Overview: This 84-nucleotide RNA sequence from Escherichia coli belongs to the Rfam family "sRNA-Xcc1". The sequence is in the family's curated seed alignment. Taxonomically the source falls in Escherichia coli O157:H7 (Bacteria, Pseudomonadati, Pseudomonadota, Enterobacteriaceae). Rfam 15.1 lists 421 matches to the family in 299 species.

RNA sequence: GACCGGGCGUGCGGCUAAUACAACACCAGCAAUGGGAAUAUGCCCGCCGACUACUUGCGGUUUUGAGCGCCCGGUCACCCUCUC
Numbered sequence: 001g002a003c004c005g006g007g008c009g010u011g012c013g014g015c016u017a018a019u020a021c022a023a024c025a026c027c028a029g030c031a032a033u034g035g036g037a038a039u040a041u042g043c044c045c046g047c048c049g050a051c052u053a054c055u056u057g058c059g060g061u062u063u064u065g066a067g068c069g070c071c072c073g074g075u076c077a078c079c080c081u082c083u084c
Stems, first nucleotide, its partner, number of pairs: 001076009013044003016040002026035003046061004